[Rfam]
RNA sequence: CUUUAAUAAUCCGGAACAAGCUGAAAAUUGAAACGACGUGUCGUAUUCAUUCUCCGUAAUAAGAAUGAAAUCAACGAUACGUUCGAGUCUCUCAAAUGCUUACGACCGACACACGUCUUUCGGGACGCUUGUGG
Numbered sequence: 001c002u003u004u005a006a007u008a009a010u011c012c013g014g015a016a017c018a019a020g021c022u023g024a025a026a027a028u029u030g031a032a033a034c035g036a037c038g039u040g041u042c043g044u045a046u047u048c049a050u051u052c053u054c055c056g057u058a059a060u061a062a063g064a065a066u067g068a069a070a071u072c073a074a075c076g077a078u079a080c081g082u083u084c085g086a087g088u089c090u091c092u093c094a095a096a097u098g099c100u101u102a103c104g105a106c107c108g109a110c111a112c113a114c115g116u117c118u119u120u121c122g123g124g125a126c127g128c129u130u131g132u133g134g
Stems, first nucleotide, its partner, number of pairs: 020103001023101002027097003034085003038080007109132002114127002

The family of this 134-nucleotide RNA from Erwinia tasmaniensis is "Salmonella enterica Typhi npcRNA 44". It is annotated as a non-coding RNA gene. The base pairs follow the family's consensus structure, which was predicted with CMfinder.